[Rfam]
RNA sequence: UCCAGAAAAAGGCAAAUUUGUUGAAAAACAGAUACGCAAAAUCACAGGUCUAAGGUUUGUUAUUAACAAACUAUGGUGGCUGGGUUGCCUGG
Numbered sequence: 001u002c003c004a005g006a007a008a009a010a011g012g013c014a015a016a017u018u019u020g021u022u023g024a025a026a027a028a029c030a031g032a033u034a035c036g037c038a039a040a041a042u043c044a045c046a047g048g049u050c051u052a053a054g055g056u057u058u059g060u061u062a063u064u065a066a067c068a069a070a071c072u073a074u075g076g077u078g079g080c081u082g083g084g085u086u087g088c089c090u091g092g
Stems, first nucleotide, its partner, number of pairs: 012037002017032006040086004045082003048077003055071006